[Rfam]
RNA sequence: ACACUCUUGUUUCUCUUCAGACUGUACAAAUCUUUUGCUUUUUACUAAAGAUUUCCGUGGAGAGGAACUAUAACAGUUUUACCCAAUUUUUUGAUGCCUUGCGAAAAAAAACAA
Numbered sequence: 001a002c003a004c005u006c007u008u009g010u011u012u013c014u015c016u017u018c019a020g021a022c023u024g025u026a027c028a029a030a031u032c033u034u035u036u037g038c039u040u041u042u043u044a045c046u047a048a049a050g051a052u053u054u055c056c057g058u059g060g061a062g063a064g065g066a067a068c069u070a071u072a073a074c075a076g077u078u079u080u081a082c083c084c085a086a087u088u089u090u091u092u093g094a095u096g097c098c099u100u101g102c103g104a105a106a107a108a109a110a111a112c113a114a
Stems, first nucleotide, its partner, number of pairs: 003077003009068011028054008099114003
This 114-nucleotide sequence from Sphaeramia orbicularis belongs to the Rfam family "U5 spliceosomal RNA". The source organism's lineage runs through Eukaryota, Metazoa, Chordata, Clupeocephala and Sphaeramia. It is annotated as a spliceosomal small nuclear RNA. Its family is annotated with spliceosomal tri-snRNP complex assembly and U5 snRNP in the Gene Ontology. A search with the family's covariance model found it, with a score of 74 bits. The family's consensus secondary structure is taken from published work.